The family of this 174-nucleotide sequence from Actinomadura viridilutea is "c-di-AMP riboswitch aptamer (ydaO/yuaA leader)".
Taxonomically the source falls in Actinomadura (Bacteria, Bacillati, Actinomycetota, Thermomonosporaceae).
RNA sequence: GGCUCGAGCCAGCCGAAUCCCGCAUCCGUACUACGGACGGGAACCGGGGACCCAACGCCGGGCGGCCAGCCAGGUCUAGUCGGCAUCGGGGUGAAUUCGCGGCUCCGCCGCGAUAGGGCUGACCCUCCGCCCGAACCCGUCAGCUAACCCGGUAGGCGUCACAGGAGAGGAGAG
Numbered sequence: 001g002g003c004u005c006g007a008g009c010c011a012g013c014c015g016a017a018u019c020c021c022g023c024a025u026c027c028g029u030a031c032u033a034c035g036g037a038c039g040g041g042a043a044c045c046g047g048g049g050a051c052c053c054a055a056c057g058c059c060g061g062g063c064g065g066c067c068a069g070c071c072a073g074g075u076c077u078a079g080u081c082g083g084c085a086u087c088g089g090g091g092u093g094a095a096u097u098c099g100c101g102g103c104u105c106c107g108c109c110g111c112g113a114u115a116g117g118g119c120u121g122a123c124c125c126u127c128c129g130c131c132c133g134a135a136c137c138c139g140u141c142a143g144c145u146a147a148c149c150c151g152g153u154a155g156g157c158g159u160c161a162c163a164g165g166a167g168a169g170g171a172g173a174g
Base pairs, nucleotide, nucleotide: 012157013156014155018042019041020040021039022038043153044152045151046150047149048148053088089138090137091136097113098112099111100110116132117131118130119129